[Rfam]
RNA sequence: AUGCAGGUAAAGUUACAAUAUAACUGAAGUGUUCUAUUGUCGUUCCCCCUGCUGAAAGUAUUUGAUACUUUACUAUCUCUGCUUAGCUCUACCAUAGUCAGGCAGAGACGCUUGGUUUCAAACAU
Numbered sequence: 001a002u003g004c005a006g007g008u009a010a011a012g013u014u015a016c017a018a019u020a021u022a023a024c025u026g027a028a029g030u031g032u033u034c035u036a037u038u039g040u041c042g043u044u045c046c047c048c049c050u051g052c053u054g055a056a057a058g059u060a061u062u063u064g065a066u067a068c069u070u071u072a073c074u075a076u077c078u079c080u081g082c083u084u085a086g087c088u089c090u091a092c093c094a095u096a097g098u099c100a101g102g103c104a105g106a107g108a109c110g111c112u113u114g115g116u117u118u119c120a121a122a123c124a125u
Base pairs, nucleotide, nucleotide: 003052004051005050006049007048015040016039017038018037019036020035022033023032024031078106079105080104081103082101083100085098
Small nucleolar RNA SNORA63: a 125-nucleotide RNA from Microtus ochrogaster.
On this family, see Mishra and Eliceiri, Proc Natl Acad Sci U S A 1997: "Three small nucleolar RNAs that are involved in ribosomal RNA precursor processing".
From the family's description: E3 belongs to the H/ACA class of snoRNAs and is involved in the processing of eukaryotic pre-rRNA and has regions of complementarity to 18S rRNA. E3 is encoded in introns in the gene for protein synthesis initiation factor 4AII.
It scores 105 bits against the family's covariance model.